This 154-nucleotide RNA sequence from Thermanaerovibrio acidaminovorans belongs to the Rfam family "glmS glucosamine-6-phosphate activated ribozyme aptamer". The organism belongs to Thermanaerovibrio acidaminovorans, within Bacteria.
RNA sequence: GGCCUUGGUUAAGCGCCUGAUCCCCUUGCGGGGAUGACGAGGUCGGGGUUGAUCGAUCCUUCGGCGGAUACCCCGGGGUCCCGGGAUGGGCCCUCAAUCGCCGCCACAAAACCGGGGAGCGAUUCCCGGCACAAAGGGCGGCGAAGUCCCGAUG
Numbered sequence: 001g002g003c004c005u006u007g008g009u010u011a012a013g014c015g016c017c018u019g020a021u022c023c024c025c026u027u028g029c030g031g032g033g034a035u036g037a038c039g040a041g042g043u044c045g046g047g048g049u050u051g052a053u054c055g056a057u058c059c060u061u062c063g064g065c066g067g068a069u070a071c072c073c074c075g076g077g078g079u080c081c082c083g084g085g086a087u088g089g090g091c092c093c094u095c096a097a098u099c100g101c102c103g104c105c106a107c108a109a110a111a112c113c114g115g116g117g118a119g120c121g122a123u124u125c126c127c128g129g130c131a132c133a134a135a136g137g138g139c140g141g142c143g144a145a146g147u148c149c150c151g152a153u154g
Base pairs, nucleotide, nucleotide: 020035021034022033023032024031025030044075045074046073047072048071053064054063055062056061076093077092078091079090080089081088098144099143100142101141102140103139104138112129113128114127115126116125117124118123